[Rfam]
RNA sequence: GUAGCAUGUGCUGUGGUUGAAAGUCGAUGUCAGUCGCAGACGAAGCGAUCCACGUAAGGAGCCAAAAUGGCUCUGAUCAUAGUGCGGCCUAGAAGUAAGACCUGCCGCAAAAAGCGAGAGGGCUAGUAGUGGGGGAUGCAGAUCAUCUAUGAGCGAACGUCCCAGCAGGCGAGUGUGGGGGUAAAAACCAGGUCAGGCAUGUUGC
Numbered sequence: 001g002u003a004g005c006a007u008g009u010g011c012u013g014u015g016g017u018u019g020a021a022a023g024u025c026g027a028u029g030u031c032a033g034u035c036g037c038a039g040a041c042g043a044a045g046c047g048a049u050c051c052a053c054g055u056a057a058g059g060a061g062c063c064a065a066a067a068u069g070g071c072u073c074u075g076a077u078c079a080u081a082g083u084g085c086g087g088c089c090u091a092g093a094a095g096u097a098a099g100a101c102c103u104g105c106c107g108c109a110a111a112a113a114g115c116g117a118g119a120g121g122g123c124u125a126g127u128a129g130u131g132g133g134g135g136a137u138g139c140a141g142a143u144c145a146u147c148u149a150u151g152a153g154c155g156a157a158c159g160u161c162c163c164a165g166c167a168g169g170c171g172a173g174u175g176u177g178g179g180g181g182u183a184a185a186a187a188c189c190a191g192g193u194c195a196g197g198c199a200u201g202u203u204g205c
Stems, first nucleotide, its partner, number of pairs: 001205009011196003014190005027176003030040001033088006049082001054077001057074003062069001080183001101169005106116003120162004129154002135147003
This 205-nucleotide RNA sequence belongs to the Rfam family "raiA RNA". Rfam classes the family as a riboswitch.